[Rfam]
RNA sequence: UUUUUAUUGGAUGAUAAUGGUCACGUAUCAUAUUUUAAUCAAAUGUCAACUUCAUAAAAGAUGAAAUGCAUUGUUGUUUUCAUUAACCAAUCAGAACAUGACAUGACAUGUGAUAGUCAUCAUCC
Numbered sequence: 001u002u003u004u005u006a007u008u009g010g011a012u013g014a015u016a017a018u019g020g021u022c023a024c025g026u027a028u029c030a031u032a033u034u035u036u037a038a039u040c041a042a043a044u045g046u047c048a049a050c051u052u053c054a055u056a057a058a059a060g061a062u063g064a065a066a067u068g069c070a071u072u073g074u075u076g077u078u079u080u081c082a083u084u085a086a087c088c089a090a091u092c093a094g095a096a097c098a099u100g101a102c103a104u105g106a107c108a109u110g111u112g113a114u115a116g117u118c119a120u121c122a123u124c125c
Stems, first nucleotide, its partner, number of pairs: 020114004025109002029100003033096004038091002
Record summary
The family of this 125-nucleotide sequence from Glycine soja is "MIR1520 microRNA precursor family". The family is grouped with related families in Rfam's "MIR1520 microRNA precursor clan". Rfam 15.1 lists 1,934 matches to the family in 15 species.